[Rfam]
Nucleotides: 090
Base pairs, nucleotide, nucleotide: 003053005051006050007049008048009047010046011045012044015041016040017078018077019076020075024037025036026035027034067085068084069083070082071081
Number, partner (000 for none) and nucleotide at each position: 001000g002000g003053c004000a005051c006050g007049u008048g009047c010046g011045g012044c013000g014000a015041c016040u017078g018077g019076c020075g021000u022000a023000c024037g025036g026035g027034g028000a029000a030000g031000u032000g033000a034027c035026c036025c037024c038000g039000a040016g041015g042000a043000a044012g045011c046010c047009g048008u049007a050006c051005g052000g053003g054000g055000c056000a057000g058000u059000u060000a061000c062000g063000c064000g065000u066000g067085g068084u069083g070082u071081c072000g073000a074000u075020c076019g077018c078017c079000u080000g081071g082070g083069c084068a085067c086000c087000c088000c089000g090000g

Rfam assigns this 90-nucleotide RNA from Streptomyces sp. ISL-10 to the family "ZMP/ZTP riboswitch aptamer (pfl RNA motif)". A search with the family's covariance model found it, with a score of 53 bits. Rfam links the family to the GO terms one-carbon metabolic process and regulation of purine nucleotide biosynthetic process.